[Rfam]
RNA sequence: CCGAGAUGGCUUGUCGGUCCGGCCGGAGCGAACGAUAAACUAGCCACGGAACGCCGGGCGCAGCCCCGCGCGUCCCACCCCAUGAUCAGCCAGCAGCCGCUGCAACCCCAGGGAG
Numbered sequence: 001c002c003g004a005g006a007u008g009g010c011u012u013g014u015c016g017g018u019c020c021g022g023c024c025g026g027a028g029c030g031a032a033c034g035a036u037a038a039a040c041u042a043g044c045c046a047c048g049g050a051a052c053g054c055c056g057g058g059c060g061c062a063g064c065c066c067c068g069c070g071c072g073u074c075c076c077a078c079c080c081c082a083u084g085a086u087c088a089g090c091c092a093g094c095a096g097c098c099g100c101u102g103c104a105a106c107c108c109c110a111g112g113g114a115g
Stems, first nucleotide, its partner, number of pairs: 048076002051073003055068004091102004